[Rfam]
The family of this 493-nucleotide part of an RNA from Chromerida sp. RM11 is "Eukaryotic large subunit ribosomal RNA".

Nucleotides: 493
Stems, first nucleotide, its partner, number of pairs: 001461004009456008018447003035059005044049001060219002063216006069208005075197009084174003088170004097162002100159011111147004116142005124134004220224001232440007239432002243257003260295008271282002274279001299426003303357003308354002310350004315346001318345003326337003358376006377381001397413005474491005
Number, partner (000 for none) and nucleotide at each position: 001461u002460a003459g004458a005000a006000u007000a008000a009456g010455g011454u012453a013452g014451a015450u016449a017000a018447g019446g020445g021000a022000a023000g024000u025000c026000g027000g028000c029000a030000a031000g032000a033000u034000a035059g036058a037057u038056c039055g040000g041000u042000a043000c044049c045000u046000u047000c048000g049044g050000u051000a052000a053000a054000a055039c056038g057037a058036u059035u060219g061218g062000c063216u064215c065214u066213g067212a068211c069208g070207g071206c072205c073204g074000g075197g076196u077195g078194u079193a080192g081191g082190g083189g084174u085173c086172c087000a088170u089169c090168a091167u092000c093000a094000g095000a096000a097162g098161g099000u100159g101158u102157g103156u104155g105154c106153u107152g108151u109150g110149c111147g112146g113145g114144u115000a116142g117141u118140a119139c120138u121000u122000g123000a124134c125133g126132c127131c128000c129000c130000u131127g132126g133125u134124g135000g136000a137000u138120a139119g140118u141117g142116c143000a144114a145113c146112c147111c148000a149110g150109c151108a152107c153106g154105g155104c156103a157102c158101g159100u160000u161098c162097u163000g164000a165000a166000g167091g168090u169089g170088a171000u172086g173085g174084a175000a176000u177000g178000a179000c180000c181000u182000c183000g184000g185000u186000c187000u188000u189083u190082c191081c192080c193079u194078g195077c196076a197075c198000a199000g200000u201000g202000a203000a204073c205072g206071g207070u208069c209000a210000a211068g212067u213066c214065a215064g216063a217000a218061c219060u220224g221000g222000a223000g224220c225000g226000g227000a228000c229000a230000a231000g232440a233439a234438g235437a236436a237435c238434c239432c240431g241000a242000c243257u244256g245255u246000u247000u248000a249000a250000u251000u252000a253000a254000a255245a256244c257243a258000a259000a260295g261294c262293a263292u264291u265290g266289c267288g268000a269000u270000g271282g272281c273000c274279g275000c276000a277000a278000u279274c280000a281272g282271u283000g284000u285000u286000g287000a288267c289266g290265c291264a292263a293262u294261g295260u296000g297000a298000u299426u300425u301424c302000u303357g304356c305355c306000c307000a308354g309353u310350g311349c312348u313347c314000u315346g316000a317000a318345u319344g320343u321000c322000a323000a324000a325000g326337u327336g328335a329000u330000g331000a332000a333000a334000u335328u336327c337326a338000a339000a340000c341000a342000a343320g344319c345318g346315c347313g348312g349311g350310u351000a352000a353309a354308c355305g356304g357303c358376g359375g360374g361373a362372g363371u364000a365000a366000c367000u368000a369000u370000g371363a372362c373361u374360c375359u376358c377381u378000u379000a380000a381377g382000g383000u384000a385000g386000c387000c388000a389000a390000a391000u392000g393000c394000c395000u396000c397413g398412u399411c400410a401409u402000c403000u404000a405000a406000u407000u408000a409401g410400u411399g412398a413397c414000g415000c416000g417000c418000a419000u420000g421000a422000a423000u424301g425300g426299a427000u428000u429000a430000a431240c432239g433000a434238g435237g436236u437235u438234c439233u440232u441000a442000c443000u444000g445020u446019c447018c448000c449016u450015a451014u452013c453012u454011a455010c456009u457000a458004u459003c460002u461001a462000g463000c464000g465000a466000a467000a468000c469000c470000a471000c472000a473000g474491c475490c476489a477488a478487g479000g480000g481000a482000a483000c484000g485000g486000g487478c488477u489476u490475g491474g492000a493000a
The sequence is in the family's curated seed alignment. NCBI's taxonomy places the organism under Eukaryota, Sar, Alveolata, Colpodellida.